[Rfam]
RNA sequence: AAUCACGAGUUCUUACCGCACCGUAGCCCUGGCUGGUAAGACGGCAACCCUCCCACGUUGUAGUGGGGUGCCCCAGGUGAUGAUUCGGCCUCACGGAACACCCCGUGUCGGGCAAGUACAGCGU
Numbered sequence: 001a002a003u004c005a006c007g008a009g010u011u012c013u014u015a016c017c018g019c020a021c022c023g024u025a026g027c028c029c030u031g032g033c034u035g036g037u038a039a040g041a042c043g044g045c046a047a048c049c050c051u052c053c054c055a056c057g058u059u060g061u062a063g064u065g066g067g068g069u070g071c072c073c074c075a076g077g078u079g080a081u082g083a084u085u086c087g088g089c090c091u092c093a094c095g096g097a098a099c100a101c102c103c104c105g106u107g108u109c110g111g112g113c114a115a116g117u118a119c120a121g122c123g124u
Stems, first nucleotide, its partner, number of pairs: 001085004009042001011041006025034002043072003048068003052063001088113004092107005

SAM (S-adenosyl methionine) riboswitch aptamer: a 124-nucleotide RNA sequence from Enteractinococcus coprophilus.
The literature on the family includes a 2008 paper in RNA by Weinberg et al., "The aptamer core of SAM-IV riboswitches mimics the ligand-binding site of SAM-I riboswitches".
Lineage of the source: Bacteria > Bacillati > Actinomycetes > Micrococcaceae > Enteractinococcus.
Rfam links the family to the GO terms regulation of gene expression and S-adenosylmethionine metabolic process.
Rfam's curators write: SAM-IV is a mRNA element that regulates gene expression via direct sensing of S-adenosylmethionine (SAM or AdoMet). SAM-IV riboswitches share conserved nucleotide positions with the previously described SAM-I riboswitches sequence analysis and molecular recognition experiments suggest that SAM-I and SAM-IV riboswitches share similar ligand binding sites, but have different scaffolds.
The family's consensus secondary structure is taken from published work.